This 218-nucleotide RNA from Caloramator mitchellensis belongs to the Rfam family "T-box leader". It is annotated as a cis-regulatory leader. The match comes from Rfam's covariance-model search (104 bits). Gene Ontology term of the family: tRNA binding.
[Rfam]
RNA sequence: GUAAAAGCGUUGAUGGGGAAGAGUAGGUCUUGAUGUGUUAUCAGAGAGGGAGACUCACCGGCUGAAAGGUUUCCUUAGCAUUAGAGAUUGAAAACCACCCCGAAGCUCCGUCCGGAAAUCAAUCGAGAGUAUGGAUUGGCGUUUGCCGCGUUAAGGCAUCAAGUUGGGUUUAUACCAAUUUGGGUGGAACCGCGGAAGAUAGGCCUUUCGUCCCAUUA
Numbered sequence: 001g002u003a004a005a006a007g008c009g010u011u012g013a014u015g016g017g018g019a020a021g022a023g024u025a026g027g028u029c030u031u032g033a034u035g036u037g038u039u040a041u042c043a044g045a046g047a048g049g050g051a052g053a054c055u056c057a058c059c060g061g062c063u064g065a066a067a068g069g070u071u072u073c074c075u076u077a078g079c080a081u082u083a084g085a086g087a088u089u090g091a092a093a094a095c096c097a098c099c100c101c102g103a104a105g106c107u108c109c110g111u112c113c114g115g116a117a118a119u120c121a122a123u124c125g126a127g128a129g130u131a132u133g134g135a136u137u138g139g140c141g142u143u144u145g146c147c148g149c150g151u152u153a154a155g156g157c158a159u160c161a162a163g164u165u166g167g168g169u170u171u172a173u174a175c176c177a178a179u180u181u182g183g184g185u186g187g188a189a190c191c192g193c194g195g196a197a198g199a200u201a202g203g204c205c206u207u208u209c210g211u212c213c214c215a216u217u218a
Stems, first nucleotide, its partner, number of pairs: 007106002015101004026089006037079003048075008108138001110136005140150003167176003181215004192211007